[Rfam]
RNA: Small nucleolar RNA SNORA3/SNORA45 family
Organism: Electrophorus electricus
RNA sequence: AGUGAGACUAGAGUCACAUCUUGACAUUCCUCAUUGUCAUGAUGUGCUAUUGUCCUCGCAGAGUAAACUUUCUCUGCAUAUUCAUUGGCUGUUGCUUUCUAUUGCUUGGCCAAUCACCAGCUCAGAAACAGAC
Dot-bracket structure: .(((((((...((.((((((..((((........))))..))))))))...)).)))))............((..((......(((((.((...............)).))))).....))..))........